[Rfam]
Source information
Shown here is a 95-nucleotide RNA from Helobdella robusta, a member of the family "Vault RNA". The family's RNA type in Rfam is non-coding RNA gene. It scores 40 bits against the family's covariance model. The literature on the family includes a 2009 paper in Mol Biol Evol by Stadler et al., "Evolution of Vault RNAs". Rfam's curators write: This family of RNAs are found as part of the enigmatic vault ribonucleoprotein complex.

RNA sequence: GCGCGGGCUCAGUAAAGUGGUUACUUCGCAUAAAAGAAUUUACUGUCACUAAGUACCCUUACUGCUCUGAACCGUUGGCGCCAUCCCGUGCUUUU
Number, nucleotide and partner (000 for none) at each position: 001g000002c090003g089004c088005g087006g086007g085008c000009u000010c000011a000012g079013u078014a000015a076016a000017g075018u074019g073020g072021u000022u000023a000024c000025u071026u070027c069028g068029c000030a000031u000032a000033a000034a000035a000036g000037a000038a000039u000040u000041u000042a000043c000044u000045g000046u000047c000048a000049c000050u000051a000052a000053g000054u000055a000056c000057c000058c000059u000060u000061a000062c000063u000064g000065c000066u000067c000068u028069g027070a026071a025072c020073c019074g018075u017076u015077g000078g013079c012080g000081c000082c000083a000084u000085c007086c006087c005088g004089u003090g002091c000092u000093u000094u000095u000